[Rfam]
RNA sequence: GAUUGCGGUGAUGACUCCAUAAUAUUCAAGCUCAACAGACCGGAUUGCAGGUUUUUCUCGGUCGAGAAAAUUAUUUGCGUGUCGAUACACCCGCUGAGCUGAGCAAUC
Numbered sequence: 001g002a003u004u005g006c007g008g009u010g011a012u013g014a015c016u017c018c019a020u021a022a023u024a025u026u027c028a029a030g031c032u033c034a035a036c037a038g039a040c041c042g043g044a045u046u047g048c049a050g051g052u053u054u055u056u057c058u059c060g061g062u063c064g065a066g067a068a069a070a071u072u073a074u075u076u077g078c079g080u081g082u083c084g085a086u087a088c089a090c091c092c093g094c095u096g097a098g099c100u101g102a103g104c105a106a107u108c
Base pairs, nucleotide, nucleotide: 001108002107003106004105005104006103
This 108-nucleotide RNA sequence from Papaver nudicaule belongs to the Rfam family "Small nucleolar RNA Z107/R87". By type it is a C/D-box small nucleolar RNA. The base pairs follow the family's consensus structure, which was predicted with RNAfold. Its family is annotated with RNA processing and nucleolus in the Gene Ontology. A reference for the family is Barneche et al. (2001), "Identification of 66 box C/D snoRNAs in Arabidopsis thaliana: extensive gene duplications generated multiple isoforms predicting new ribosomal RNA 2'-O-methylation sites", J Mol Biol.